[Rfam]
RNA sequence: UAUAAUCAUAUGGGGGCCAUUGAAGGAGCGUUUACGUCGCGGUCCCUGCCAGAUGAAAAUCUGCGAAUCCUUCA
Numbered sequence: 001u002a003u004a005a006u007c008a009u010a011u012g013g014g015g016g017c018c019a020u021u022g023a024a025g026g027a028g029c030g031u032u033u034a035c036g037u038c039g040c041g042g043u044c045c046c047u048g049c050c051a052g053a054u055g056a057a058a059a060u061c062u063g064c065g066a067a068u069c070c071u072u073c074a
Stems, first nucleotide, its partner, number of pairs: 013046006021074007028040003050063005
Dot-bracket structure: ............[[[[[[..((((((((((.......)))]]]]]]...(((((....)))))....)))))))
Rfam assigns this 74-nucleotide sequence from Strongylocentrotus purpuratus to the family "Mammalian CPEB3 ribozyme". A search with the family's covariance model found it, with a score of 65 bits. The base pairs follow the family's consensus structure, which is taken from published work. The mammalian CPEB3 ribozyme is a self cleaving RNA located in the second intron of the CPEB3 gene which belongs to a family of genes regulating messenger RNA polyadenylation. The family has 14 seed sequences and 5,706 matches in Rfam 15.1.